[Rfam]
A member of the RNA family "MIR6201 microRNA precursor family" from Aegilops tauschii, 110 nucleotides long. NCBI's taxonomy places the organism under Eukaryota, Streptophyta, Magnoliopsida, Poaceae, Aegilops tauschii. A search with the family's covariance model found it, with a score of 70 bits. The family's consensus secondary structure was predicted with RNAalifold.
RNA sequence: AUCGGAGUUUGGCCCUGAGACACUCGUACCGCUAGCAUUCUAAAGGCACUCAUACGGGCUAGCAUUCUAAACCAGCCGGCGGUAUGAGUGCCUCAGGGUCAAACGCCGGU
Numbered sequence: 001a002u003c004g005g006a007g008u009u010u011g012g013c014c015c016u017g018a019g020a021c022a023c024u025c026g027u028a029c030c031g032c033u034a035g036c037a038u039u040c041u042a043a044a045g046g047c048a049c050u051c052a053u054a055c056g057g058g059c060u061a062g063c064a065u066u067c068u069a070a071a072c073c074a075g076c077c078g079g080c081g082g083u084a085u086g087a088g089u090g091c092c093u094c095a096g097g098g099u100c101a102a103a104c105g106c107c108g109g110u
Stems, first nucleotide, its partner, number of pairs: 005106001007104013021090013035076002046059002049056001